A member of the RNA family "raiA RNA" from Cylicostephanus goldi, 244 nucleotides long. Taxonomically the source falls in Cylicostephanus (Eukaryota, Rhabditida, Strongyloidea, Strongylidae). By type it is a riboswitch.

[Rfam]
RNA sequence: UCUUGCCAGGUCUGUGGUUGCGAGCGGAGCUCAAGUCCAUGGUAGACGAGGCCAAAAGGAUCCACGUAAGCUGUUGCGUAUGCGUGGCAGUGAUCAUGGCUCGUCCUAGAGAUAAGUCGUGCCGUUCGUUUAUGGGAGCAUACUGCUCAGCGAGCGAGAGGGCUAGUAGUUUGUAUACGUUGGUAUGUCAGGCGAAUACUCCAGCACGCGGGUGUGGGGGCAAAGACCAGGUCAGCUGGCGGGA
Numbered sequence: 001u002c003u004u005g006c007c008a009g010g011u012c013u014g015u016g017g018u019u020g021c022g023a024g025c026g027g028a029g030c031u032c033a034a035g036u037c038c039a040u041g042g043u044a045g046a047c048g049a050g051g052c053c054a055a056a057a058g059g060a061u062c063c064a065c066g067u068a069a070g071c072u073g074u075u076g077c078g079u080a081u082g083c084g085u086g087g088c089a090g091u092g093a094u095c096a097u098g099g100c101u102c103g104u105c106c107u108a109g110a111g112a113u114a115a116g117u118c119g120u121g122c123c124g125u126u127c128g129u130u131u132a133u134g135g136g137a138g139c140a141u142a143c144u145g146c147u148c149a150g151c152g153a154g155c156g157a158g159a160g161g162g163c164u165a166g167u168a169g170u171u172u173g174u175a176u177a178c179g180u181u182g183g184u185a186u187g188u189c190a191g192g193c194g195a196a197u198a199c200u201c202c203a204g205c206a207c208g209c210g211g212g213u214g215u216g217g218g219g220g221c222a223a224a225g226a227c228c229a230g231g232u233c234a235g236c237u238g239g240c241g242g243g244a
Stems, first nucleotide, its partner, number of pairs: 001244009012235003015229005039215003042052001045105006061099002066094001069091001074086001097222001118208005123156008160201003169193002